[Rfam]
RNA sequence: CCAAAGGCUCUUUUCAGAGCCACCACAUUAUCAUCAGGAGGACUGU
Dot-bracket structure: .....((((((....)))))).........................